[Rfam]
RNA sequence: CCCUUAUCUUUUAAAAGUUUCAAGUUGGUCCCUUAUCUUUAUUUUAGGUUUCAAGUUGGUCCCUUCCGUCAAUUUUUUAACUAUUUCCCUUAAAUUUGGACACGUGGCAAACUCAUUUAGACACGUGGCACACUUGGACAGAUGACACGUGUCCAAUUUUAACGGUAACAGUAAAAAAACUGACGGAAGGGACCAACUUGAAACCUAAAAUAAAGAUAAGGGACCUACUUGAAAUUUUUAAAAGAUAAGGGA
Number, nucleotide and partner (000 for none) at each position: 001c000002c250003c249004u248005u247006a246007u245008c244009u000010u000011u000012u000013a000014a000015a000016a000017g000018u000019u000020u000021c000022a000023a229024g228025u227026u000027g225028g224029u223030c000031c221032c220033u219034u218035a217036u216037c215038u214039u213040u212041a211042u210043u209044u000045u207046a206047g205048g000049u000050u000051u000052c000053a000054a000055g000056u000057u000058g000059g000060u000061c000062c000063c000064u000065u000066c000067c000068g000069u000070c000071a000072a000073u000074u000075u000076u000077u000078u000079a000080a000081c000082u000083a000084u000085u000086u000087c000088c000089c000090u000091u000092a000093a000094a000095u000096u000097u000098g000099g000100a000101c000102a000103c000104g000105u000106g000107g000108c000109a000110a000111a000112c000113u000114c000115a000116u000117u000118u000119a000120g000121a000122c000123a000124c000125g000126u000127g000128g000129c000130a000131c000132a000133c000134u000135u000136g000137g000138a000139c000140a000141g000142a000143u000144g000145a000146c000147a000148c000149g000150u000151g000152u000153c000154c000155a000156a000157u000158u000159u000160u000161a000162a000163c000164g000165g000166u000167a000168a000169c000170a000171g000172u000173a000174a000175a000176a000177a000178a000179a000180c000181u000182g000183a000184c000185g000186g000187a000188a000189g000190g000191g000192a000193c000194c000195a000196a000197c000198u000199u000200g000201a000202a000203a000204c000205c047206u046207a045208a000209a043210a042211u041212a040213a039214a038215g037216a036217u035218a034219a033220g032221g031222g000223a029224c028225c027226u000227a025228c024229u023230u000231g000232a000233a000234a000235u000236u000237u000238u000239u000240a000241a000242a000243a000244g008245a007246u006247a005248a004249g003250g002251g000252a000